[Rfam]
Nucleotides: 069
Base pairs, nucleotide, nucleotide: 001069002068003067004066005064006063007062008061009060010059011058012057013056014055016053017052018051019050020049021048025046026045027044028043
Number, partner (000 for none) and nucleotide at each position: 001069g002068g003067a004066g005064g006063c007062u008061g009060g010059u011058u012057u013056c014055a015000u016053g017052u018051g019050g020049u021048g022000g023000a024000u025046u026045a027044g028043a029000u030000u031000a032000a033000c034000u035000a036000c037000a038000c039000a040000c041000u042000g043028u044027c045026u046025a047000g048021c049020a050019c051018c052017a053016u054000a055014u056013g057012a058011a059010a060009u061008c062007a063006g064005u065000g066004u067003u068002u069001c
Shown here is a 69-nucleotide RNA sequence from Hymenochirus boettgeri, a member of the family "mir-29 microRNA precursor family". Taxonomically the source falls in Hymenochirus (Eukaryota, Deuterostomia, Sarcopterygii, Pipidae). A search with the family's covariance model found it, with a score of 62 bits. The family has 168 seed sequences and 3,328 matches in Rfam 15.1.